[Rfam]
RNA: Small nucleolar RNA snoR100
Organism: Rhododendron williamsianum
RNA sequence: GAACACAGAAAGCAUGGUUAUGUGCACAGAAAUUGAUUUGGGUCUUUAGGCCUACCUCUCUGAUACCUUUUGGCUUUGAUUUGGGAGUAUGAUUCCCCAGCAAAACA
Numbered sequence: 001g002a003a004c005a006c007a008g009a010a011a012g013c014a015u016g017g018u019u020a021u022g023u024g025c026a027c028a029g030a031a032a033u034u035g036a037u038u039u040g041g042g043u044c045u046u047u048a049g050g051c052c053u054a055c056c057u058c059u060c061u062g063a064u065a066c067c068u069u070u071u072g073g074c075u076u077u078g079a080u081u082u083g084g085g086a087g088u089a090u091g092a093u094u095c096c097c098c099a100g101c102a103a104a105a106c107a
Base pairs, nucleotide, nucleotide: 012025013024014023015022040090042088043087050080052078055073056072